Shown here is a 68-nucleotide sequence from Danionella cerebrum, a member of the family "mir-375 microRNA precursor family". It scores 70 bits against the family's covariance model. The family's consensus secondary structure was predicted with RNAalifold.
[Rfam]
RNA sequence: UUUUACGUUGAGCCACGCGCACAAUACCUGGAGCUCAAAAGGUUUUGUUCGUUCGGCUCGCGUUAUGC
Number, nucleotide and partner (000 for none) at each position: 001u067002u000003u065004u000005a063006c062007g061008u000009u060010g059011a058012g057013c056014c055015a000016c000017g000018c051019g050020c000021a048022c047023a046024a045025u000026a043027c042028c000029u000030g000031g000032a000033g000034c000035u000036c000037a000038a000039a000040a000041g000042g027043u026044u000045u024046u023047g022048u021049u000050c019051g018052u000053u000054c000055g014056g013057c012058u011059c010060g009061c007062g006063u005064u000065a003066u000067g001068c000